[Rfam]
RNA sequence: CGAGCCGACCGGGCGGCCGCGGCGUCCCUGGGUGACCAGGGGUCGAGGAACGUCCGGGCUCCACAGAGCAGGGCGGUGGCUAACAGCCACCCGGGGUGACCCGCGGGACAGUGCCACAGAGAACAGACCGCCAGCACACGCUGGUGAGGGUGAAACGGUGGGGUAAGAGCCCACCAGCGCGACGGGUGACCGUCGCGGCUCGGUAAACCCCGUCCGGAGCAAGACCGCACAGCAGGCGUUCGAGGGCUGCUCGCCCGAGCCUGCGGGUAGGUCGCGUGAGGCCAUCGGCAACGGUGGCCCAAGAUGGAUGGUCGCCGCCGCCCAGGACCGGUAACGGUGGGCGGUAACAGAACCCGGCGUACAGGUCGGCUCGUCCG
Numbered sequence: 001c002g003a004g005c006c007g008a009c010c011g012g013g014c015g016g017c018c019g020c021g022g023c024g025u026c027c028c029u030g031g032g033u034g035a036c037c038a039g040g041g042g043u044c045g046a047g048g049a050a051c052g053u054c055c056g057g058g059c060u061c062c063a064c065a066g067a068g069c070a071g072g073g074c075g076g077u078g079g080c081u082a083a084c085a086g087c088c089a090c091c092c093g094g095g096g097u098g099a100c101c102c103g104c105g106g107g108a109c110a111g112u113g114c115c116a117c118a119g120a121g122a123a124c125a126g127a128c129c130g131c132c133a134g135c136a137c138a139c140g141c142u143g144g145u146g147a148g149g150g151u152g153a154a155a156c157g158g159u160g161g162g163g164u165a166a167g168a169g170c171c172c173a174c175c176a177g178c179g180c181g182a183c184g185g186g187u188g189a190c191c192g193u194c195g196c197g198g199c200u201c202g203g204u205a206a207a208c209c210c211c212g213u214c215c216g217g218a219g220c221a222a223g224a225c226c227g228c229a230c231a232g233c234a235g236g237c238g239u240u241c242g243a244g245g246g247c248u249g250c251u252c253g254c255c256c257g258a259g260c261c262u263g264c265g266g267g268u269a270g271g272u273c274g275c276g277u278g279a280g281g282c283c284a285u286c287g288g289c290a291a292c293g294g295u296g297g298c299c300c301a302a303g304a305u306g307g308a309u310g311g312u313c314g315c316c317g318c319c320g321c322c323c324a325g326g327a328c329c330g331g332u333a334a335c336g337g338u339g340g341g342c343g344g345u346a347a348c349a350g351a352a353c354c355c356g357g358c359g360u361a362c363a364g365g366u367c368g369g370c371u372c373g374u375c376c377g
Base pairs, nucleotide, nucleotide: 001373002372003371004370005369006368007367008366009365010364011362012316013315014314015313016312017311018310020045021044022043023042026041027040028039029038030037050360051359052358054357055356056355057354058353059219060218061217062216066252067251068250069249071215072214073213074212075211076090077089078088079087080086091105092103093102094101095100106210107209111208112207113204114203115202128149129148130145131144132143133142134141135140157175158174159173160172161171162170177199178197179196180195181194182193183192184191185190223273224272225271226270232264233263234262235261236260237259244256245255246254247253280299281298282297283296284295285294286293287292
Shown here is a 377-nucleotide RNA from Actinomyces howellii, a member of the family "Bacterial RNase P class A". By type it is a ribozyme. About the family: Ribonuclease P (RNase P) is a ubiquitous endoribonuclease, found in archaea, bacteria and eukarya as well as chloroplasts and mitochondria.